[Rfam]
Nucleotides: 156
Stems, first nucleotide, its partner, number of pairs: 002024007014056004027104005047062002050059003074134003080125005086119001089115002094110004099106001137156007
Number, partner (000 for none) and nucleotide at each position: 001000c002024c003023a004022a005021u006020g007019u008018g009000u010000u011000u012000u013000c014056g015055u016054c017053a018008c019007a020006c021005a022004u023003u024002g025000a026000g027104u028103u029102a030101g031100c032000c033000u034000c035000a036000g037000a038000g039000c040000c041000u042000u043000a044000a045000g046000u047062u048061g049000u050059g051058g052057g053017u054016g055015a056014c057052u058051c059050c060000c061048c062047g063000c064000c065000a066000a067000a068000a069000u070000g071000g072000a073000a074134u075133u076132g077000a078000a079000a080125g081124a082123c083122a084121c085000a086119a087000a088000a089115g090114c091000a092000g093000a094110u095109c096108a097107a098000u099106a100031g101030c102029u103028a104027a105000c106099u107097u108096u109095g110094a111000g112000a113000a114090g115089u116000g117000a118000g119086u120000c121084g122083u123082g124081u125080u126000g127000a128000g129000u130000a131000g132076c133075g134074g135000u136000a137156g138155a139154u140153c141152a142151g143150u144000u145000g146000c147000c148000g149000a150143g151142c152141u153140g154139a155138u156137c

Pseudomonadales-1 RNA: a 156-nucleotide RNA from Acinetobacter defluvii.
Lineage of the source: Bacteria > Pseudomonadota > Gammaproteobacteria > Moraxellales > Acinetobacter.
It is annotated as a small RNA.